[Rfam]
RNA sequence: UUUGCAGCCGCCUCUAAUUCGCUUGGUGCAGGUCGGGACUCAUUCUCUAUUGCCGGCGCCGGCAAUGACGACGGCUACUACGACGGUCUGCGGCGGAGACUACGGCGGCGGCGACGUUAUUGCGGAGGAAUUUGAGUCCUGCCUUGCAUCAACUGAAUUGGAGACCGCUGUGAGU
Numbered sequence: 001u002u003u004g005c006a007g008c009c010g011c012c013u014c015u016a017a018u019u020c021g022c023u024u025g026g027u028g029c030a031g032g033u034c035g036g037g038a039c040u041c042a043u044u045c046u047c048u049a050u051u052g053c054c055g056g057c058g059c060c061g062g063c064a065a066u067g068a069c070g071a072c073g074g075c076u077a078c079u080a081c082g083a084c085g086g087u088c089u090g091c092g093g094c095g096g097a098g099a100c101u102a103c104g105g106c107g108g109c110g111g112c113g114a115c116g117u118u119a120u121u122g123c124g125g126a127g128g129a130a131u132u133u134g135a136g137u138c139c140u141g142c143c144u145u146g147c148a149u150c151a152a153c154u155g156a157a158u159u160g161g162a163g164a165c166c167g168c169u170g171u172g173a174g175u
Stems, first nucleotide, its partner, number of pairs: 013162002017158004023152010034141005040135002
Rfam assigns this 175-nucleotide RNA sequence from Capsicum baccatum to the family "MIR168 microRNA precursor family". A search with the family's covariance model found it, with a score of 82 bits. Rfam 15.1 lists 518 matches to the family in 218 species. Its family is annotated with miRNA-mediated post-transcriptional gene silencing and RISC complex in the Gene Ontology. Pairs were carried over by alignment from the consensus structure, which was predicted with WAR. NCBI's taxonomy places the organism under Eukaryota, Streptophytina, eudicotyledons, lamiids, Capsicum.